RNA sequence: CCGUGCUAGGCGGGGAGGUAGCGGUGCCCUGAAUCCGCAAUCCGCUCUAGCGGGGCUGAAUUCCCUUUCGAGGGGUUCGGCGUCCGAGGCCAGCCCGCUGUGCAAAGCGUCGAUGGUCAGGUCCCGCGCGGUGACGGCCCGCGAACCAGGUCAGGUCCGGAAGGAAGCAGCCUUAAACGGUCACCGUCAUGCGUAGCGGGAGUGCCUGCCGGAGUGGAGCAUGGCGUCAGCGCUCGAGCGUCGAUCUCGACGAAGGGUGCACGG
Numbered sequence: 001c002c003g004u005g006c007u008a009g010g011c012g013g014g015g016a017g018g019u020a021g022c023g024g025u026g027c028c029c030u031g032a033a034u035c036c037g038c039a040a041u042c043c044g045c046u047c048u049a050g051c052g053g054g055g056c057u058g059a060a061u062u063c064c065c066u067u068u069c070g071a072g073g074g075g076u077u078c079g080g081c082g083u084c085c086g087a088g089g090c091c092a093g094c095c096c097g098c099u100g101u102g103c104a105a106a107g108c109g110u111c112g113a114u115g116g117u118c119a120g121g122u123c124c125c126g127c128g129c130g131g132u133g134a135c136g137g138c139c140c141g142c143g144a145a146c147c148a149g150g151u152c153a154g155g156u157c158c159g160g161a162a163g164g165a166a167g168c169a170g171c172c173u174u175a176a177a178c179g180g181u182c183a184c185c186g187u188c189a190u191g192c193g194u195a196g197c198g199g200g201a202g203u204g205c206c207u208g209c210c211g212g213a214g215u216g217g218a219g220c221a222u223g224g225c226g227u228c229a230g231c232g233c234u235c236g237a238g239c240g241u242c243g244a245u246c247u248c249g250a251c252g253a254a255g256g257g258u259g260c261a262c263g264g
Stems, first nucleotide, its partner, number of pairs: 001264006009057003012030004017025001019023001034054005063257006072248005079242005085236004093228001096226006107215002114211003118208005123200005129191002132189005137182001139180003148173004156165003
RNA: Bacterial large signal recognition particle RNA